The family of this 131-nucleotide RNA sequence from Mola mola is "Small Cajal body specific RNA 8". Rfam's curators write: scaRNAs are a specific class of small nuclear RNAs which localise to the Cajal bodies and guide the modification of RNA polymerase II transcribed spliceosomal RNAs U1, U2, U4, U5 and U12. U92 belong to the H/ACA box class of guide RNAs as it has the predicted hairpin-hinge-hairpin-tail structure, conserved H/ACA-box motifs and is found associated with GAR1. Its family is annotated with nucleolus, RNA processing and Cajal body in the Gene Ontology. A reference for the family is Darzacq et al. (2002), "Cajal body-specific small nuclear RNAs: a novel class of 2'-O-methylation and pseudouridylation guide RNAs", EMBO J. Pairs were carried over by alignment from the consensus structure, which is taken from published work. Lineage of the source: Eukaryota > Eumetazoa > Ctenosquamata > Molidae > Mola.
RNA sequence: UGGGAGGCAGAUACCUGGACCGUGCUGAGCAGUGCUCCGUCCGUCACAAGUCCUCCCAACAGCAUCCGUGCUCUCUGAUGACCGCGGUGAAUUGAGGGAAAUCGCCACGGACAGAUACGGAGCAGACACCU
Numbered sequence: 001u002g003g004g005a006g007g008c009a010g011a012u013a014c015c016u017g018g019a020c021c022g023u024g025c026u027g028a029g030c031a032g033u034g035c036u037c038c039g040u041c042c043g044u045c046a047c048a049a050g051u052c053c054u055c056c057c058a059a060c061a062g063c064a065u066c067c068g069u070g071c072u073c074u075c076u077g078a079u080g081a082c083c084g085c086g087g088u089g090a091a092u093u094g095a096g097g098g099a100a101a102u103c104g105c106c107a108c109g110g111a112c113a114g115a116u117a118c119g120g121a122g123c124a125g126a127c128a129c130c131u
Stems, first nucleotide, its partner, number of pairs: 002057006016043003022037001024035002067125001069124006082110003087105004